RNA sequence: GUUGUGAGGAAUGUUGGCUGGCUCGAGGCUUUUCAAAACAAAGAUGUUCUUUUUUCUUUUUUUCCUUUUUUUCAACUUGGAAAAAGAAGAGAAAAGAAAAGAAGAGAGAACUUUUAGGCUUCGGACCAGGCUUCAUUCCCCUCAAC
Numbered sequence: 001g002u003u004g005u006g007a008g009g010a011a012u013g014u015u016g017g018c019u020g021g022c023u024c025g026a027g028g029c030u031u032u033u034c035a036a037a038a039c040a041a042a043g044a045u046g047u048u049c050u051u052u053u054u055u056c057u058u059u060u061u062u063u064c065c066u067u068u069u070u071u072u073c074a075a076c077u078u079g080g081a082a083a084a085a086g087a088a089g090a091g092a093a094a095a096g097a098a099a100a101g102a103a104g105a106g107a108g109a110a111c112u113u114u115u116a117g118g119c120u121u122c123g124g125a126c127c128a129g130g131c132u133u134c135a136u137u138c139c140c141c142u143c144a145a146c
Base pairs, nucleotide, nucleotide: 001146002145003144004143006141008139009138010137011136012135013134016131018129019128020127021126024123025122026121027120028119029118030117031116
mir-166 microRNA precursor family: a 146-nucleotide sequence from Cucumis melo. Rfam 15.1 lists 2,599 matches to the family in 229 species. About the family: This family represents the plant microRNA (miRNA) precursor mir-166. The source organism's lineage runs through Eukaryota, Streptophyta, Streptophytina, Spermatophyta and Cucumis melo subsp. agrestis. On this family, see Reinhart et al., Genes Dev 2002: "MicroRNAs in plants".